[Rfam]
RNA sequence: UACAUUUGACGAGCAGGAAAGGCACCCUGCGCUCCCACGGGAACCUGAUAUGAUGGAUACGCCGCCCAUCCAAAUGUA
Numbered sequence: 001u002a003c004a005u006u007u008g009a010c011g012a013g014c015a016g017g018a019a020a021g022g023c024a025c026c027c028u029g030c031g032c033u034c035c036c037a038c039g040g041g042a043a044c045c046u047g048a049u050a051u052g053a054u055g056g057a058u059a060c061g062c063c064g065c066c067c068a069u070c071c072a073a074a075u076g077u078a
Base pairs, nucleotide, nucleotide: 001078002077003076004075005074006073007072008071013030014029015028016027017026021063022062023061032047033042034041035040052070053069054068055067056066